[Rfam]
Shown here is a 104-nucleotide RNA from bacterium HR21, a member of the family "TPP riboswitch aptamer (THI element)". Its family is annotated with thiamine pyrophosphate binding in the Gene Ontology. Rfam describes the family as follows. Vitamin B(1) in its active form thiamin pyrophosphate (TPP) is an essential coenzyme that is synthesised by coupling of pyrimidine and thiazole moieties in bacteria.

RNA sequence: CAGCUCCGUUGGGGGUGCUUCGCCUCUCGAAGGCGAGGCUGAGAGGAUACCCUUCGAACCUGAUCCGGGUAAUGCCGGCGUAGGGAAAACGGAGCGGUAGCGAA
Numbered sequence: 001c002a003g004c005u006c007c008g009u010u011g012g013g014g015g016u017g018c019u020u021c022g023c024c025u026c027u028c029g030a031a032g033g034c035g036a037g038g039c040u041g042a043g044a045g046g047a048u049a050c051c052c053u054u055c056g057a058a059c060c061u062g063a064u065c066c067g068g069g070u071a072a073u074g075c076c077g078g079c080g081u082a083g084g085g086a087a088a089a090c091g092g093a094g095c096g097g098u099a100g101c102g103a104a
Stems, first nucleotide, its partner, number of pairs: 006092005011053004016047001017039009059084004065078004